[Rfam]
Record summary:
The record is a 79-nucleotide RNA from Chelonoidis abingdonii, which matches "mir-16 microRNA precursor family" in Rfam. Its Rfam clan is "mir-15 clan". The base pairs follow the family's consensus structure, which was predicted with PFOLD. A search with the family's covariance model found it, with a score of 47 bits.
RNA sequence: CUCUGAAGACAGCAGCACAAAAGUAAGGGUGGCAUGGUAUGGUAUUGCCACCCUUACUUUUGUGCUGCUGUCUUCAGAG
Numbered sequence: 001c002u003c004u005g006a007a008g009a010c011a012g013c014a015g016c017a018c019a020a021a022a023g024u025a026a027g028g029g030u031g032g033c034a035u036g037g038u039a040u041g042g043u044a045u046u047g048c049c050a051c052c053c054u055u056a057c058u059u060u061u062g063u064g065c066u067g068c069u070g071u072c073u074u075c076a077g078a079g
Stems, first nucleotide, its partner, number of pairs: 001079003005075003011069008020059001022058008